[Rfam]
RNA: Plastid-psbA-2 3UTR RNA
Organism: Salvia splendens
RNA sequence: AAGGAGCAAUAAACCCUUUACUUGUUCUAUCAAAAGAGGGUUUAUUGCUCCUUAUGUUUA
Numbered sequence: 001a002a003g004g005a006g007c008a009a010u011a012a013a014c015c016c017u018u019u020a021c022u023u024g025u026u027c028u029a030u031c032a033a034a035a036g037a038g039g040g041u042u043u044a045u046u047g048c049u050c051c052u053u054a055u056g057u058u059u060a
Base pairs, nucleotide, nucleotide: 001053002052003051004050005049006048007047008046009045010044011043012042013041014040015039016038019037021036022035023032024031